[Rfam]
RNA sequence: UACAAUAAGGCUUUUAGGGUGGUGGCUCGCCCCUCAUUUGGUGAACAAAGGGGGUGAUGCCUAUGACGGUAUUUGAAGCCCUCAUGAUCAUGUUGACGUUCGGAUCAUUUGUGGUGUUACUGCUGUCACAAAAAAAGUAACCACCCUCAUGCCUGGUAAGCUGUAGGGUAGUUACUAUCCCGAAUGCGAGCCGCCCCUUUGAAGGGCUAUUGUACGUAACCGUUGGUGUGUCCGCACCAGCGG
Dot-bracket structure: (((((.(.((((((.((((.(.(...(((.(((((..............)))))))).......(((((((......((............)).........(((..........)))..)))))))...........).)..)))).)...........(.(................).).....)))))((((.......))))).))))).....((((((((((....))))))))))

The record is a 243-nucleotide RNA sequence from Aquisalibacillus elongatus, which matches "BsrG" in Rfam. The source organism's lineage runs through Bacteria, Bacillati, Bacilli, Bacillaceae and Aquisalibacillus. Gene Ontology terms of the family: autolysis and toxin activity. The base pairs follow the family's consensus structure, which was predicted with WAR. It is annotated as a small RNA.